This 176-nucleotide RNA sequence from Allonocardiopsis opalescens belongs to the Rfam family "c-di-AMP riboswitch aptamer (ydaO/yuaA leader)". The pairing is the family consensus, mapped onto this sequence.
[Rfam]
RNA sequence: ACCGACCGGAGGCCGGUCCGGGCGGCAGCGGAGCCGGGGACCCACCAAUCCCCGGGGUGAAUCCGCCACGGCCGGGCGCACGGGACGGCGGUCCCGGGCGGCCGGGCCACGGUGGUAGGGCCUUCUCCCGGCCCGAACCCGUCAGCUAACCCGGUAGGCGGCCGAGGAGAGGAGUG
Numbered sequence: 001a002c003c004g005a006c007c008g009g010a011g012g013c014c015g016g017u018c019c020g021g022g023c024g025g026c027a028g029c030g031g032a033g034c035c036g037g038g039g040a041c042c043c044a045c046c047a048a049u050c051c052c053c054g055g056g057g058u059g060a061a062u063c064c065g066c067c068a069c070g071g072c073c074g075g076g077c078g079c080a081c082g083g084g085a086c087g088g089c090g091g092u093c094c095c096g097g098g099c100g101g102c103c104g105g106g107c108c109a110c111g112g113u114g115g116u117a118g119g120g121c122c123u124u125c126u127c128c129c130g131g132c133c134c135g136a137a138c139c140c141g142u143c144a145g146c147u148a149a150c151c152c153g154g155u156a157g158g159c160g161g162c163c164g165a166g167g168a169g170a171g172g173a174g175u176g
Stems, first nucleotide, its partner, number of pairs: 002031002033155006043054001055140003063115004118134004
Background
A search with the family's covariance model found it, with a score of 43 bits. The source organism's lineage runs through Bacteria, Bacillati, Actinomycetota, Streptosporangiales and Allonocardiopsis.